[Rfam]
RNA sequence: UAGUGGUCCAGACCAGUGAAUACGAUCUGGGAAACUAGGUAGGGAAACAUCAUCUUUGGAUGAGUAAAUUAACUACC
Numbered sequence: 001u002a003g004u005g006g007u008c009c010a011g012a013c014c015a016g017u018g019a020a021u022a023c024g025a026u027c028u029g030g031g032a033a034a035c036u037a038g039g040u041a042g043g044g045a046a047a048c049a050u051c052a053u054c055u056u057u058g059g060a061u062g063a064g065u066a067a068a069u070u071a072a073c074u075a076c077c
Base pairs, nucleotide, nucleotide: 001037002036003035004034009029010028011027012026016023017022038077039076040075041074042073050063051062052061053060054059
RNA: Hairpin ribozyme 1 from viruses-like metatranscriptomes